[Rfam]
RNA sequence: GCCGGUCCUCGGUUGUGGCAUCCGGGGUGUUCCACCCCGGGCGCUUCUAUCGAAGACCGGC
Numbered sequence: 001g002c003c004g005g006u007c008c009u010c011g012g013u014u015g016u017g018g019c020a021u022c023c024g025g026g027g028u029g030u031u032c033c034a035c036c037c038c039g040g041g042c043g044c045u046u047c048u049a050u051c052g053a054a055g056a057c058c059g060g061c
Stems, first nucleotide, its partner, number of pairs: 001061007009053005017045003021041009
Actino-pnp RNA: a 61-nucleotide sequence from Phytoactinopolyspora halophila. The base pairs follow the family's consensus structure, which is taken from published work. It scores 66 bits against the family's covariance model.